[Rfam]
The family of this 144-nucleotide sequence from Rugosimonospora africana is "c-di-AMP riboswitch aptamer (ydaO/yuaA leader)". Gene Ontology terms of the family: regulation of gene expression and cyclic-di-AMP binding. It scores 88 bits against the family's covariance model. This family represents a conserved RNA structure found upstream of the ydaO and yuaA genes in Bacillus subtilis and related genes in other bacteria. Taxonomically the source falls in Rugosimonospora (Bacteria, Bacillati, Actinomycetota, Micromonosporales).

RNA sequence: GGAACAGACCCGCUGAAUCGUGUUCGUCACGAAUCGGGGACCCGUUGUUGUUGGGGUGAAUCCGUGGACUCCCCCGUCCGCGGUAGGGCGCUCUUUCCCGUCCGAACCCGUCAGCUAACCCGGUAAGCGGCACCGGAAGGAGUA
Numbered sequence: 001g002g003a004a005c006a007g008a009c010c011c012g013c014u015g016a017a018u019c020g021u022g023u024u025c026g027u028c029a030c031g032a033a034u035c036g037g038g039g040a041c042c043c044g045u046u047g048u049u050g051u052u053g054g055g056g057u058g059a060a061u062c063c064g065u066g067g068a069c070u071c072c073c074c075c076g077u078c079c080g081c082g083g084u085a086g087g088g089c090g091c092u093c094u095u096u097c098c099c100g101u102c103c104g105a106a107c108c109c110g111u112c113a114g115c116u117a118a119c120c121c122g123g124u125a126a127g128c129g130g131c132a133c134c135g136g137a138a139g140g141a142g143u144a
Base pairs, nucleotide, nucleotide: 011129012128013127014126018032019031020030033124034123035122036121037120038119043053044052054109055108056107062083063082064081065080066079067078068077086103087102088101089100